The family of this 138-nucleotide RNA sequence from Clarias magur is "Small nucleolar RNA SNORA13". Pairs were carried over by alignment from the consensus structure, which was predicted with CMfinder. NCBI's taxonomy places the organism under Eukaryota, Opisthokonta, Neopterygii, Siluroidei, Clarias. Clan: SNORA13 clan. The family has 50 seed sequences and 1,034 matches in Rfam 15.1.
[Rfam]
RNA sequence: UGCCUUUUUGUGUUGCUCGUUCUUUGCUUCCCCUUGAAAGAAUGUGGUGUCAGUAAAGGCAUACAGUAACGCCCAGGUUUGGCCUUUACCGGGUAACUUUGGUGUUACCUCGGGAAAAGCUCUGUACCUGGCACACAU
Numbered sequence: 001u002g003c004c005u006u007u008u009u010g011u012g013u014u015g016c017u018c019g020u021u022c023u024u025u026g027c028u029u030c031c032c033c034u035u036g037a038a039a040g041a042a043u044g045u046g047g048u049g050u051c052a053g054u055a056a057a058g059g060c061a062u063a064c065a066g067u068a069a070c071g072c073c074c075a076g077g078u079u080u081g082g083c084c085u086u087u088a089c090c091g092g093g094u095a096a097c098u099u100u101g102g103u104g105u106u107a108c109c110u111c112g113g114g115a116a117a118a119g120c121u122c123u124g125u126a127c128c129u130g131g132c133a134c135a136c137a138u
Stems, first nucleotide, its partner, number of pairs: 002060006011052002014049004018044008073131004079124001081122002086117002089114002091111002095106002